[Rfam]
A member of the RNA family "FMN riboswitch aptamer (RFN element)" from Eshraghiella crossota, 114 nucleotides long. Gene Ontology term of the family: FMN binding. Lineage of the source: Bacteria > Clostridia > Lachnospirales > Eshraghiella > Eshraghiella crossota.
Nucleotides: 114
Base pairs, nucleotide, nucleotide: 005110006109007108008107009106010105017029018028019027031094032093033084034083035048036047037046038045043082044081053058064080065079066078067077068076086097087096088095
Number, partner (000 for none) and nucleotide at each position: 001000a002000a003000u004000a005110a006109u007108c008107u009106u010105c011000a012000g013000g014000g015000c016000a017029g018028g019027g020000u021000g022000u023000g024000a025000u026000u027019c028018c029017c030000u031094a032093c033084c034083g035048g036047c037046a038045g039000u040000a041000a042000a043082g044081u045038c046037u047036g048035c049000g050000a051000g052000c053058c054000g055000a056000u057000g058053g059000c060000a061000u062000g063000a064080a065079c066078c067077g068076g069000u070000g071000u072000g073000a074000u075000u076068c077067c078066g079065g080064u081044a082043c083034c084033g085000a086097c087096a088095g089000u090000a091000u092000a093032g094031u095088c096087u097086g098000g099000a100000u101000g102000a103000g104000a105010g106009a107008a108007g109006a110005u111000a112000u113000a114000a